[Rfam]
RNA: ZMP/ZTP riboswitch aptamer (pfl RNA motif)
Organism: Actinopolymorpha pittospori
RNA sequence: GUGCCGGGCCGUGACUGGCGCGUUGGGAUGGGAUCGACCAUCAGGAAGCGGCCCCGUCCGUCCGCGAGACGUCGUGCCGUGCGCCUGGGCCCCUUCC
Number, nucleotide and partner (000 for none) at each position: 001g000002u000003g057004c056005c000006g054007g053008g052009c051010c050011g049012u048013g000014a000015c045016u044017g085018g084019c083020g082021c081022g000023u000024u000025g000026g000027g000028a041029u040030g039031g038032g000033a000034u000035c000036g000037a000038c031039c030040a029041u028042c000043a000044g016045g015046a000047a000048g012049c011050g010051g009052c008053c007054c006055c000056g004057u003058c000059c000060g000061u000062c000063c000064g000065c000066g000067a000068g000069a000070c000071g000072u000073c000074g092075u000076g090077c089078c088079g000080u000081g021082c020083g019084c018085c017086u000087g000088g078089g077090c076091c000092c074093c000094u000095u000096c000097c000